The family of this 252-nucleotide RNA from Scyliorhinus torazame is "Small nucleolar RNA SNORA53". It scores 100 bits against the family's covariance model. The organism belongs to Scyliorhinus, within Eukaryota. Pairs were carried over by alignment from the consensus structure, which was predicted with RNAalifold. About the family: The snoRNA ACA53 belongs to the H/ACA family of pseudouridylation guide snoRNAs.
RNA sequence: AACACAUUCCUUAGAUCCACCUUUGUGAUAUAUCUGUUUUGCUGUAUUGGCAGACCUCAUGUAUCAUGGGUUCUCCAAUAUGGUUUCUCCAAUAUGGUUAUCAGAUAAUCCACAACUUCUGUGGUACAGUCAAAGGUGCUUGAGUCAUUGAUGUGUGAGAAUAAUAUACCUGCAAGUUGGCCAUAUGUGUUUCAGUGUGAACGGCCUGUAUUCAGCAUGCUGUUAUCUGCCAUUGGGACCCAUGCGGACACA
Numbered sequence: 001a002a003c004a005c006a007u008u009c010c011u012u013a014g015a016u017c018c019a020c021c022u023u024u025g026u027g028a029u030a031u032a033u034c035u036g037u038u039u040u041g042c043u044g045u046a047u048u049g050g051c052a053g054a055c056c057u058c059a060u061g062u063a064u065c066a067u068g069g070g071u072u073c074u075c076c077a078a079u080a081u082g083g084u085u086u087c088u089c090c091a092a093u094a095u096g097g098u099u100a101u102c103a104g105a106u107a108a109u110c111c112a113c114a115a116c117u118u119c120u121g122u123g124g125u126a127c128a129g130u131c132a133a134a135g136g137u138g139c140u141u142g143a144g145u146c147a148u149u150g151a152u153g154u155g156u157g158a159g160a161a162u163a164a165u166a167u168a169c170c171u172g173c174a175a176g177u178u179g180g181c182c183a184u185a186u187g188u189g190u191u192u193c194a195g196u197g198u199g200a201a202c203g204g205c206c207u208g209u210a211u212u213c214a215g216c217a218u219g220c221u222g223u224u225a226u227c228u229g230c231c232a233u234u235g236g237g238a239c240c241c242a243u244g245c246g247g248a249c250a251c252a
Stems, first nucleotide, its partner, number of pairs: 002156007010144005018138008026108001033105004041098001044095004050089001052088003110124005170247005177242001179240002182237001192236006202229003208220003